[Rfam]
A member of the RNA family "SAM-III riboswitch aptamer (SMK box)" from Pediococcus pentosaceus, 81 nucleotides long. Gene Ontology terms of the family: methionine adenosyltransferase activity and regulation of translational initiation. The family's consensus secondary structure is taken from published work.
Nucleotides: 081
Stems, first nucleotide, its partner, number of pairs: 015073005023046003027040002031037001052068002
Number, partner (000 for none) and nucleotide at each position: 001000g002000u003000a004000a005000g006000u007000u008000a009000c010000u011000a012000g013000u014000g015073u016072u017071c018070c019069c020000g021000a022000u023046a024045g025044g026000a027040u028039u029000a030000g031037u032000u033000a034000u035000c036000c037031a038000a039028a040027a041000g042000a043000u044025c045024c046023u047000u048000g049000u050000a051000a052068c053067c054000g055000a056000a057000a058000u059000u060000a061000a062000a063000u064000u065000u066000a067053g068052g069019g070018g071017g072016a073015a074000u075000u076000u077000a078000c079000a080000u081000g
A reference for the family is Fuchs et al. (2007), "S-adenosylmethionine directly inhibits binding of 30S ribosomal subunits to the SMK box translational riboswitch RNA", Proc Natl Acad Sci U S A.